Rfam assigns this 82-nucleotide RNA from Caenorhabditis latens to the family "SmY spliceosomal RNA". Taxonomically the source falls in Caenorhabditis (Eukaryota, Eumetazoa, Bilateria, Rhabditidae). The family's consensus secondary structure is taken from published work. Rfam classes the family as a spliceosomal small nuclear RNA. A search with the family's covariance model found it, with a score of 79 bits. On this family, see MacMorris et al., RNA 2007: "A novel family of C. elegans snRNPs contains proteins associated with trans-splicing".

[Rfam]
RNA sequence: GUGUGAUACACAUGAUAGUCAGGGCCUUCAUUAAGACCCCAAGUACAAUUUUUGGAGACCCUGUCCUUCAGUGGGCAGGGUG
Numbered sequence: 001g002u003g004u005g006a007u008a009c010a011c012a013u014g015a016u017a018g019u020c021a022g023g024g025c026c027u028u029c030a031u032u033a034a035g036a037c038c039c040c041a042a043g044u045a046c047a048a049u050u051u052u053u054g055g056a057g058a059c060c061c062u063g064u065c066c067u068u069c070a071g072u073g074g075g076c077a078g079g080g081u082g
Base pairs, nucleotide, nucleotide: 022039023038024037026035027034028033058081059080060079061078062077063076064075065074066073